[Rfam]
RNA sequence: ACCCGAACCCAGGCCCGCUGACUCGUAGUUCAGUGCUCGUGGUAGCUGCUGGGCCCUGAACUAGGGGUCUGGGGGCCUGGGUUUGAAUAUC
Numbered sequence: 001a002c003c004c005g006a007a008c009c010c011a012g013g014c015c016c017g018c019u020g021a022c023u024c025g026u027a028g029u030u031c032a033g034u035g036c037u038c039g040u041g042g043u044a045g046c047u048g049c050u051g052g053g054c055c056c057u058g059a060a061c062u063a064g065g066g067g068u069c070u071g072g073g074g075g076c077c078u079g080g081g082u083u084u085g086a087a088u089a090u091c
Stems, first nucleotide, its partner, number of pairs: 008081006015074002018071001020069005026063001028061002031058003035054004
The family of this 91-nucleotide sequence from Erinaceus europaeus is "mir-345 microRNA precursor family". Rfam links the family to the GO terms miRNA-mediated post-transcriptional gene silencing and RISC complex.